[Rfam]
RNA sequence: CUCCCCGAAAGCUAUUUAGGUAGCGCCUCGUGUAUCACCGUUGGGGGUAGAGCACUGUUACGGCUAGGGGUCCAUCCCGGAUUACCAAACCGUUGCAAACUCCGAAUACCAAUGAGUGCAGCACGGGAGACACACGGCGGGUGCUAACGUCCGUCGUGAAGAGGGAUGAAAACCCAGACCGCCAGCUAAGGUCCCCAAAUUACAGCUUAGUGGGAAACGAUGUGGGAAGGCUUAGACAGCCAGGAUGUUGGCUUAGAAGCAGCCAUCAUUUAAAGAAAGCGUAAUAGCUCACUGGUCGAGUCAGCCCGCGCGGAAGAUUUAACGGGGCUCAAGCUGUAUACCGAAGCUGCGGAUGUGCCUGUCCUCGGACAGGCACGUGGUAGGGGAGCGUUCUGUAAGCCUGCGAAGGUGACUCGGAAGGGUUGCUGGAGGUAUCAGAAGUGCGAAU
Numbered sequence: 001c002u003c004c005c006c007g008a009a010a011g012c013u014a015u016u017u018a019g020g021u022a023g024c025g026c027c028u029c030g031u032g033u034a035u036c037a038c039c040g041u042u043g044g045g046g047g048u049a050g051a052g053c054a055c056u057g058u059u060a061c062g063g064c065u066a067g068g069g070g071u072c073c074a075u076c077c078c079g080g081a082u083u084a085c086c087a088a089a090c091c092g093u094u095g096c097a098a099a100c101u102c103c104g105a106a107u108a109c110c111a112a113u114g115a116g117u118g119c120a121g122c123a124c125g126g127g128a129g130a131c132a133c134a135c136g137g138c139g140g141g142u143g144c145u146a147a148c149g150u151c152c153g154u155c156g157u158g159a160a161g162a163g164g165g166a167u168g169a170a171a172a173c174c175c176a177g178a179c180c181g182c183c184a185g186c187u188a189a190g191g192u193c194c195c196c197a198a199a200u201u202a203c204a205g206c207u208u209a210g211u212g213g214g215a216a217a218c219g220a221u222g223u224g225g226g227a228a229g230g231c232u233u234a235g236a237c238a239g240c241c242a243g244g245a246u247g248u249u250g251g252c253u254u255a256g257a258a259g260c261a262g263c264c265a266u267c268a269u270u271u272a273a274a275g276a277a278a279g280c281g282u283a284a285u286a287g288c289u290c291a292c293u294g295g296u297c298g299a300g301u302c303a304g305c306c307c308g309c310g311c312g313g314a315a316g317a318u319u320u321a322a323c324g325g326g327g328c329u330c331a332a333g334c335u336g337u338a339u340a341c342c343g344a345a346g347c348u349g350c351g352g353a354u355g356u357g358c359c360u361g362u363c364c365u366c367g368g369a370c371a372g373g374c375a376c377g378u379g380g381u382a383g384g385g386g387a388g389c390g391u392u393c394u395g396u397a398a399g400c401c402u403g404c405g406a407a408g409g410u411g412a413c414u415c416g417g418a419a420g421g422g423u424u425g426c427u428g429g430a431g432g433u434a435u436c437a438g439a440a441g442u443g444c445g446a447a448u
Base pairs, nucleotide, nucleotide: 001388002387003386004385005384006383011024012023013022014021015020026129027127028126029125030124031123032122033121035120039114040113041112042111043110044109050103051101052100056097057096058095060093061092062091063090067086068085069083070082071081072080073079133158134157135156136155137154138153139152140151141150142149163175164174165173179352180351181350182349184348185347186346190342191341192340199339201338202337203336204335205334206333218312219311222309223308224307225306226305229302230301231300239296240295241294242293243292245269246268247267250264251263252262270274275290279288280287353378354377355376356375357374358373359372360371361370362369389443391440392439393438394437395436399433400432401431408427409426410425411424412423413422414421415420